A member of the RNA family "c-di-GMP-I riboswitch aptamer" from Colwellia chukchiensis, 83 nucleotides long. Rfam describes the family as follows. GEMM was predicted in a large-scale screen for bacterial structured RNA regulatory elements.

RNA sequence: GCUCUAUAAGGGCAAAUCCAGUGAAAAUUGGAGACGCAAAGUUACCGAUCUAAGGGGCAACCUAUGAUAGCGGAACUGCCAAG
Numbered sequence: 001g002c003u004c005u006a007u008a009a010g011g012g013c014a015a016a017u018c019c020a021g022u023g024a025a026a027a028u029u030g031g032a033g034a035c036g037c038a039a040a041g042u043u044a045c046c047g048a049u050c051u052a053a054g055g056g057g058c059a060a061c062c063u064a065u066g067a068u069a070g071c072g073g074a075a076c077u078g079c080c081a082a083g
Base pairs, nucleotide, nucleotide: 012037013036017032018031019030020029021028022027040077041076042075043074045073046072047071048068049067050066055062056061
Dot-bracket structure: ...........((...((((((....))))))...))..((((.((((((....((....))...)))..)))))))......
The base pairs follow the family's consensus structure, which is taken from published work. The source organism's lineage runs through Bacteria, Pseudomonadati, Gammaproteobacteria, Colwelliaceae and Colwellia.